[Rfam]
RNA sequence: ACUAAAAAAGGGCAACCUAUUCGAAAGAAUAUGGACGCAAAACUAGAGGGGCUUCAGUAGUAAUACUAUGCCAGCCAGUUGCAUCG
Dot-bracket structure: ...........((...((((((....))))).)...))..((((...(((((....(((....)))...)))..))))))......

Rfam assigns this 86-nucleotide RNA from Lottiidibacillus patelloidae to the family "c-di-GMP-I riboswitch aptamer".